The record is a 91-nucleotide sequence from Harpegnathos saltator, which matches "mir-317 microRNA precursor family" in Rfam. The source organism's lineage runs through Eukaryota, Protostomia, Eumetabola, Formicidae and Harpegnathos.
RNA sequence: GCUUUCAGAGAACAGGGAGCCACUCUGCGUUCUCUCGGUAGGUAAUGAAGCGAGUGAACACAGCUGGUGGUAUCUCAGUUUUCUGGGGGCG
Numbered sequence: 001g002c003u004u005u006c007a008g009a010g011a012a013c014a015g016g017g018a019g020c021c022a023c024u025c026u027g028c029g030u031u032c033u034c035u036c037g038g039u040a041g042g043u044a045a046u047g048a049a050g051c052g053a054g055u056g057a058a059c060a061c062a063g064c065u066g067g068u069g070g071u072a073u074c075u076c077a078g079u080u081u082u083c084u085g086g087g088g089g090c091g
Base pairs, nucleotide, nucleotide: 008082009081010080011079015076016074017073019071020070022068023067024066025063026062027061029059031057032056

For this family Rfam cites "Systematic discovery and characterization of fly microRNAs using 12 Drosophila genomes" (Stark et al., Genome Res, 2007).